[Rfam]
RNA sequence: AACUUAUGACAUGCCAUGAAGGUCUAGUACUUAAUGAUACAUUCCUUCGCCAGCUCAUAAUAAGAAAAAACAGAAGGAUCUCUAUAGGAAGCAAAUCGGAAUUUGAUGAUGAGUUUGCGCCAAUUGAAAUCUAC
Number, nucleotide and partner (000 for none) at each position: 001a000002a000003c064004u063005u062006a061007u060008g000009a000010c000011a000012u000013g054014c053015c000016a000017u049018g048019a047020a046021g045022g044023u000024c000025u000026a000027g040028u039029a038030c000031u000032u000033a000034a000035u000036g000037a000038u029039a028040c027041a000042u000043u000044c022045c021046u020047u019048c018049g017050c000051c000052a000053g014054c013055u000056c000057a000058u000059a000060a007061u006062a005063a004064g003065a000066a000067a000068a000069a000070a000071c000072a000073g000074a000075a000076g132077g131078a130079u129080c000081u127082c126083u000084a000085u000086a000087g121088g120089a000090a000091g118092c117093a116094a115095a114096u112097c111098g110099g000100a000101a000102u000103u000104u000105g000106a000107u000108g000109a000110u098111g097112a096113g000114u095115u094116u093117g092118c091119g000120c088121c087122a000123a000124u000125u000126g082127a081128a000129a079130u078131c077132u076133a000134c000
RNA: Tetrahymena snoRNA TtnuHACA28